LOOT RNA: a 119-nucleotide RNA sequence.
RNA sequence: GACCUAACCCUUUGAAGUAAUUUAGAGGCAUGGUCAAAAACGCGAUGAACAUAAAAAACCCGUUAUUAGGGCGUUCAUCGCGUUAUACAGGGAAACUUGUAUAGAGGUCGCAAGACCUU
Dot-bracket structure: ((((....(((((((......)))))))...)))).....((((((((((........(((.......))).)))))))))).((((((((....))))))))((((((....))))))